Background: This 94-nucleotide sequence from Engelhardtia mirabilis belongs to the Rfam family "Selenocysteine transfer RNA". The base pairs follow the family's consensus structure, which is taken from published work. It scores 70 bits against the family's covariance model.

RNA sequence: GGGAGCGGAUCGGUGCUGGUGUGCCGCCCGGCCUUCAAAGCCGCGAGGGUUGCGUGAACAGCGUGACCGGUGGGUUCGAUUCCCAUGCGCUCCC
Numbered sequence: 001g002g003g004a005g006c007g008g009a010u011c012g013g014u015g016c017u018g019g020u021g022u023g024c025c026g027c028c029c030g031g032c033c034u035u036c037a038a039a040g041c042c043g044c045g046a047g048g049g050u051u052g053c054g055u056g057a058a059c060a061g062c063g064u065g066a067c068c069g070g071u072g073g074g075u076u077c078g079a080u081u082c083c084c085a086u087g088c089g090c091u092c093c094c
Stems, first nucleotide, its partner, number of pairs: 001094007009086001011026006027045001029043004048068005071085004